Rfam assigns this 85-nucleotide sequence from Pitta sordida to the family "Small nucleolar RNA SNORD35". Its Rfam clan is "SNORD35 clan". By type it is a C/D-box small nucleolar RNA. NCBI's taxonomy places the organism under Eukaryota, Opisthokonta, Deuterostomia, Amniota, Pitta. About the family: U35 is a C/D box snoRNA located in intron 6 of ribosomal protein L13A and intron 3 of ribosomal protein S11 in humans and at homologous positions in mouse and chicken ribosomal protein genes. U35 guides the methylation of 2'-O-ribose sites in 28S rRNA. It scores 58 bits against the family's covariance model. A reference for the family is Nicoloso et al. (1996), "Intron-encoded, antisense small nucleolar RNAs: the characterization of nine novel species points to their direct role as guides for the 2'-O-ribose methylation of rRNAs", J Mol Biol.

RNA sequence: UGCAGAUGAUGCCAAUCUCACGAUGGUCUGCCGAGCCCACCCUGGGCAUGACGACACUGCCCUGUGGCUUCACUGAUGCGGCGAC
Numbered sequence: 001u002g003c004a005g006a007u008g009a010u011g012c013c014a015a016u017c018u019c020a021c022g023a024u025g026g027u028c029u030g031c032c033g034a035g036c037c038c039a040c041c042c043u044g045g046g047c048a049u050g051a052c053g054a055c056a057c058u059g060c061c062c063u064g065u066g067g068c069u070u071c072a073c074u075g076a077u078g079c080g081g082c083g084a085c
Stems, first nucleotide, its partner, number of pairs: 001080004